[Rfam]
RNA sequence: UUGUAAGAGGCAUGAUGUAUUACCAUAGAGCUCUCGGGAUCUUUGGCAUUCCUUGAUUCUGCUUCCGAGAUGGACAUUAGGG
Numbered sequence: 001u002u003g004u005a006a007g008a009g010g011c012a013u014g015a016u017g018u019a020u021u022a023c024c025a026u027a028g029a030g031c032u033c034u035c036g037g038g039a040u041c042u043u044u045g046g047c048a049u050u051c052c053u054u055g056a057u058u059c060u061g062c063u064u065c066c067g068a069g070a071u072g073g074a075c076a077u078u079a080g081g082g
Base pairs, nucleotide, nucleotide: 001082002081004079005078006077